[Rfam]
RNA sequence: UCUAGAACUUGAGAUAUGGGCUGAACACUGAACAAUAUUUGGGCUGCAGGACAGAUUCAGACUUCUCUUUUGAUGCUAAGAUUUGAACUUCCAAAUAGCAUAAUUGAGUCUUGGACUGUUCCUAAAUCUUUUAGGCCUAUGUCUUAGCUUUCUAGC
Numbered sequence: 001u002c003u004a005g006a007a008c009u010u011g012a013g014a015u016a017u018g019g020g021c022u023g024a025a026c027a028c029u030g031a032a033c034a035a036u037a038u039u040u041g042g043g044c045u046g047c048a049g050g051a052c053a054g055a056u057u058c059a060g061a062c063u064u065c066u067c068u069u070u071u072g073a074u075g076c077u078a079a080g081a082u083u084u085g086a087a088c089u090u091c092c093a094a095a096u097a098g099c100a101u102a103a104u105u106g107a108g109u110c111u112u113g114g115a116c117u118g119u120u121c122c123u124a125a126a127u128c129u130u131u132u133a134g135g136c137c138u139a140u141g142u143c144u145u146a147g148c149u150u151u152c153u154a155g156c
Stems, first nucleotide, its partner, number of pairs: 002155006008147002011145010021134005027129001035123001041119001043117001045115001048112005054105004060099001062098002072088001074086001